RNA sequence: UAUGGUAUUAUAUAUGAUAAUUAUAUAAGCUCAUAAUAUGGUUGAGCGUCUCUACCAACUUCCGUAAAUAGUUGAUUAUAAUUUUAGGUAUAUCAACU
Dot-bracket structure: ..................(((((((...(((((.........)))))........(((((.........)))))..)))))))...............
Numbered sequence: 001u002a003u004g005g006u007a008u009u010a011u012a013u014a015u016g017a018u019a020a021u022u023a024u025a026u027a028a029g030c031u032c033a034u035a036a037u038a039u040g041g042u043u044g045a046g047c048g049u050c051u052c053u054a055c056c057a058a059c060u061u062c063c064g065u066a067a068a069u070a071g072u073u074g075a076u077u078a079u080a081a082u083u084u085u086a087g088g089u090a091u092a093u094c095a096a097c098u
Stems, first nucleotide, its partner, number of pairs: 019083007029047005056074005
A member of the RNA family "Purine riboswitch aptamer" from Blautia pseudococcoides, 98 nucleotides long.
Pairs were carried over by alignment from the consensus structure, which is taken from published work.
The source organism's lineage runs through Bacteria, Bacillati, Bacillota, Lachnospiraceae and Blautia.